About this RNA
Shown here is a 35-nucleotide RNA sequence from Capra hircus, a member of the family "Iron response element I". Rfam links the family to the GO term response to iron ion. A reference for the family is Huang et al. (1999), "An atypical iron-responsive element (IRE) within crayfish ferritin mRNA and an iron regulatory protein 1 (IRP1)-like protein from crayfish hepatopancreas", Insect Biochem Mol Biol. The source organism's lineage runs through Eukaryota, Craniata, Amniota, Artiodactyla and Capra. The family's RNA type in Rfam is cis-regulatory element.
[Rfam]
RNA sequence: CUGGCUCUUGCCUCAACAGUGUUUGGCUGGAACAG
Numbered sequence: 001c002u003g004g005c006u007c008u009u010g011c012c013u014c015a016a017c018a019g020u021g022u023u024u025g026g027c028u029g030g031a032a033c034a035g
Stems, first nucleotide, its partner, number of pairs: 001035003006031003010028001013026004017021001